[Rfam]
RNA sequence: CGCCGCCGAGCGCUCUGACUUCAUUGCACUACUGUACUUCCCGGCUAGCAGUGCAAUAGUAUUGUCAAAGCACUCGCAGGCGGA
Numbered sequence: 001c002g003c004c005g006c007c008g009a010g011c012g013c014u015c016u017g018a019c020u021u022c023a024u025u026g027c028a029c030u031a032c033u034g035u036a037c038u039u040c041c042c043g044g045c046u047a048g049c050a051g052u053g054c055a056a057u058a059g060u061a062u063u064g065u066c067a068a069a070g071c072a073c074u075c076g077c078a079g080g081c082g083g084a
Base pairs, nucleotide, nucleotide: 002081003080004079007076008075009074010073012071013070014069016067017066018065019064023057024056025055026054027053028052029051030050034042

This 84-nucleotide sequence from Pogona vitticeps belongs to the Rfam family "mir-301 microRNA precursor family". For this family Rfam cites "Embryonic stem cell-specific MicroRNAs" (Houbaviy et al., Dev Cell, 2003). The match comes from Rfam's covariance-model search (89 bits). Taxonomically the source falls in Pogona (Eukaryota, Dipnotetrapodomorpha, Amniota, Acrodonta).